[Rfam]
The family of this 133-nucleotide sequence from Orycteropus afer is "Small nucleolar RNA SNORA43". Clan: SNORA17 clan. Lineage of the source: Eukaryota > Sarcopterygii > Mammalia > Tubulidentata > Orycteropus afer.

RNA sequence: GUGGCCCCGGACCUGCUAGCACACAGGUGGCGGUGCUGCUAUACUUGGGACAUCAGGGCAAAGAGGAAGUGGCUAUUUCUACACUCAGUGCUCCAGCCAGUGAGCACUUAGAAUGGUUUAUAGCCUCACAGCC
Numbered sequence: 001g002u003g004g005c006c007c008c009g010g011a012c013c014u015g016c017u018a019g020c021a022c023a024c025a026g027g028u029g030g031c032g033g034u035g036c037u038g039c040u041a042u043a044c045u046u047g048g049g050a051c052a053u054c055a056g057g058g059c060a061a062a063g064a065g066g067a068a069g070u071g072g073c074u075a076u077u078u079c080u081a082c083a084c085u086c087a088g089u090g091c092u093c094c095a096g097c098c099a100g101u102g103a104g105c106a107c108u109u110a111g112a113a114u115g116g117u118u119u120a121u122a123g124c125c126u127c128a129c130a131g132c133c
Base pairs, nucleotide, nucleotide: 004059005058006057007056009054010053024047025046026045071125072124073123079116080115081114084111085110089106090105091104092103093102